[Rfam]
Nucleotides: 050
Base pairs, nucleotide, nucleotide: 004017005016006015007014008013037050038049039048040047041046
Number, partner (000 for none) and nucleotide at each position: 001000u002000a003000c004017u005016g006015g007014g008013g009000a010000c011000g012000a013008c014007c015006c016005c017004a018000c019000c020000c021000u022000u023000c024000c025000c026000g027000g028000g029000a030000a031000c032000u033000g034000a035000a036000c037050g038049c039048g040047g041046g042000a043000c044000g045000a046041c047040c048039c049038g050037c